[Rfam]
RNA sequence: AUCCCUUACAGAGCUAACGCCAACACCAUGAGCGCCGGAGAUAAGCGCCGGAAGGGAGACAAGAA
Number, nucleotide and partner (000 for none) at each position: 001a000002u057003c056004c055005c054006u000007u000008a000009c000010a000011g000012a000013g033014c032015u031016a000017a000018c000019g000020c000021c000022a000023a000024c000025a000026c000027c000028a000029u000030g000031a015032g014033c013034g000035c051036c050037g049038g048039a000040g046041a000042u000043a000044a000045g000046c040047g000048c038049c037050g036051g035052a000053a000054g005055g004056g003057a002058g000059a000060c000061a000062a000063g000064a000065a000

A member of the RNA family "rydB RNA" from Atlantibacter hermannii, 65 nucleotides long. Taxonomically the source falls in Atlantibacter hermannii (Bacteria, Enterobacterales, Enterobacteriaceae, Atlantibacter). The base pairs follow the family's consensus structure, which was predicted with RNAalifold. This family consists of several bacterial sequences from E. coli, Shigella flexneri and Salmonella species. This RNA gene was discovered by an RNA screen between the ydiC and ydiH in E. coli. This gene is only 67 bases in length and is composed of a hairpin like structure. The function of this RNA is unknown.